[Rfam]
RNA sequence: ACGUCAUGCUGAGCGCCGCCGAAGCAUCUCUACUGCAGCACUAAAUCAAAUUAGUCGCGCAGUAGAGAUGCUUCGGCGGCGCUCAGCAUGACGUU
Numbered sequence: 001a002c003g004u005c006a007u008g009c010u011g012a013g014c015g016c017c018g019c020c021g022a023a024g025c026a027u028c029u030c031u032a033c034u035g036c037a038g039c040a041c042u043a044a045a046u047c048a049a050a051u052u053a054g055u056c057g058c059g060c061a062g063u064a065g066a067g068a069u070g071c072u073u074c075g076g077c078g079g080c081g082c083u084c085a086g087c088a089u090g091a092c093g094u095u
Stems, first nucleotide, its partner, number of pairs: 003092025029066002034061003038058002045051002